[Rfam]
This 98-nucleotide sequence from Anaerocolumna cellulosilytica belongs to the Rfam family "c-di-GMP-I riboswitch aptamer".
RNA sequence: AUUUGGUAUGGGCAAACUUAUCGAAAGAUAAGGACGCAAAGCUUAGGGUCUAAACCGGAAAACAAAAGUGUUUUCUGAUAUGAUAGCCGGUUGCACAA
Dot-bracket structure: ...........((...((((((....))))))...))..((((..(((((.....(((((((((....)))))))))....)))..))))))......